Background:
A member of the RNA family "Small nucleolar RNA snoR97" from Rhynchospora breviuscula, 110 nucleotides long. The family has 7 seed sequences and 862 matches in Rfam 15.1. NCBI's taxonomy places the organism under Eukaryota, Streptophyta, Streptophytina, Liliopsida, Rhynchospora. Pairs were carried over by alignment from the consensus structure, which was predicted with WAR.
RNA sequence: ACAUUAAAAUGUCAAUGGGGCCUACAGAAACUCAAAGAUUCAACCGUGUUGUCAUCACCUCUGUCUCUUUCAUUUUCUGGGGAUUUGAGUUGAAUAACAUCGCAACAUAA
Numbered sequence: 001a002c003a004u005u006a007a008a009a010u011g012u013c014a015a016u017g018g019g020g021c022c023u024a025c026a027g028a029a030a031c032u033c034a035a036a037g038a039u040u041c042a043a044c045c046g047u048g049u050u051g052u053c054a055u056c057a058c059c060u061c062u063g064u065c066u067c068u069u070u071c072a073u074u075u076u077c078u079g080g081g082g083a084u085u086u087g088a089g090u091u092g093a094a095u096a097a098c099a100u101c102g103c104a105a106c107a108u109a110a
Stems, first nucleotide, its partner, number of pairs: 046103003050099002057091001059089003064083004